[Rfam]
RNA sequence: GCCUGUGGACGACCACAGACAAAAUGAAAACCCUGCGGGACGGCCCGC
Numbered sequence: 001g002c003c004u005g006u007g008g009a010c011g012a013c014c015a016c017a018g019a020c021a022a023a024a025u026g027a028a029a030a031c032c033c034u035g036c037g038g039g040a041c042g043g044c045c046c047g048c
Stems, first nucleotide, its partner, number of pairs: 001020001003018006035048005
Rfam assigns this 48-nucleotide sequence from Spongiibacter nanhainus to the family "Guanidine-II riboswitch aptamer (mini-ykkC)".
The base pairs follow the family's consensus structure, which is taken from published work.
Simpler in structure and has fewer highly conserved nucleotide positions than the ykkC-yxkD leader. Despite this each of its two stem-loop structures directly bind free guanidine. Therefore, mini-ykkC RNA motif represents a distinct class of guanidine-sensing RNAs. Its crystal structure was also determined.
The match comes from Rfam's covariance-model search (40 bits).
Lineage of the source: Bacteria > Pseudomonadati > Pseudomonadota > Spongiibacteraceae > Spongiibacter.